[Rfam]
Rfam assigns this 102-nucleotide RNA sequence from Senegalia massiliensis to the family "Purine riboswitch aptamer". Its family is annotated with purine nucleobase biosynthetic process in the Gene Ontology.
RNA sequence: UUAAAUAAUCGAAUAAAUGCUCAUAUAAGUUCCAUAAUAAGGUUGGAACGUUUCUACUAGGUGACCGAUAAUCAUCUGUCUAUGAGCGAGAGUGUGCCUAGG
Numbered sequence: 001u002u003a004a005a006u007a008a009u010c011g012a013a014u015a016a017a018u019g020c021u022c023a024u025a026u027a028a029g030u031u032c033c034a035u036a037a038u039a040a041g042g043u044u045g046g047a048a049c050g051u052u053u054c055u056a057c058u059a060g061g062u063g064a065c066c067g068a069u070a071a072u073c074a075u076c077u078g079u080c081u082a083u084g085a086g087c088g089a090g091a092g093u094g095u096g097c098c099u100a101g102g
Base pairs, nucleotide, nucleotide: 018088019087020086021085022084023083024082025081029049030048031047032046033045034044058078059077060076061075062074063073064072
The organism belongs to Senegalia, within Bacteria. A search with the family's covariance model found it, with a score of 77 bits.